Shown here is an 82-nucleotide RNA from Apostichopus japonicus, a member of the family "mir-242_2 microRNA precursor family". Rfam links the family to the GO terms RISC complex and miRNA-mediated post-transcriptional gene silencing. The match comes from Rfam's covariance-model search (80 bits). Taxonomically the source falls in Apostichopus (Eukaryota, Bilateria, Echinozoa, Aspidochirotida). The family's consensus secondary structure was predicted with RNAalifold.
[Rfam]
Nucleotides: 082
Stems, first nucleotide, its partner, number of pairs: 003080005009074002013070005019064002022061001025058009
Number, partner (000 for none) and nucleotide at each position: 001000a002000c003080u004079g005078u006077a007076g008000g009074g010073u011000g012000u013070u014069g015068c016067g017066u018000a019064g020063g021000c022061g023000u024000u025058g026057u027056g028055c029054a030053c031052a032051g033050u034000g035000u036000u037000c038000c039000c040000g041000u042000a043000c044000a045000c046000u047000a048000c049000a050033a051032u052031u053030g054029u055028g056027c057026a058025u059000c060000u061022c062000a063020c064019c065000c066017a067016c068015g069014c070013a071000a072000a073010g074009c075000a076007c077006u078005g079004c080003a081000g082000u